[Rfam]
RNA: Selenocysteine insertion sequence 1
Organism: Atractosteus spatula
RNA sequence: GUUUUAUAUGUGACGGUUACAGCUAAAGUCUUCGGAGUGUUGUAACCUGAAGGCUGAAAAC
Numbered sequence: 001g002u003u004u005u006a007u008a009u010g011u012g013a014c015g016g017u018u019a020c021a022g023c024u025a026a027a028g029u030c031u032u033c034g035g036a037g038u039g040u041u042g043u044a045a046c047c048u049g050a051a052g053g054c055u056g057a058a059a060a061c
Stems, first nucleotide, its partner, number of pairs: 001061005015047009029036002